[Rfam]
RNA sequence: UGUGACACUUUGAGAUUGUGCCACAUCAUCACUUGAAAAUUUAAAAAAAUUAUAUAAAUUUUCAAGCGACGAUGUGUUACAAUCUCAGAGUGUCAU
Numbered sequence: 001u002g003u004g005a006c007a008c009u010u011u012g013a014g015a016u017u018g019u020g021c022c023a024c025a026u027c028a029u030c031a032c033u034u035g036a037a038a039a040u041u042u043a044a045a046a047a048a049a050u051u052a053u054a055u056a057a058a059u060u061u062u063c064a065a066g067c068g069a070c071g072a073u074g075u076g077u078u079a080c081a082a083u084c085u086c087a088g089a090g091u092g093u094c095a096u
Base pairs, nucleotide, nucleotide: 003095004094005093006092007091008090009089012086013085014084015083016082017081018080019079020078022076023075024074025073026072027071029069030068032066033065034064035063036062037061038060039059040058041057
Background: This 96-nucleotide sequence from Gossypium australe belongs to the Rfam family "MIR8675 microRNA precursor family". The base pairs follow the family's consensus structure, which was predicted with RNAalifold. The family has 2 seed sequences and 111 matches in Rfam 15.1. Rfam links the family to the GO terms miRNA-mediated post-transcriptional gene silencing and RISC complex. The organism belongs to Gossypium, within Eukaryota.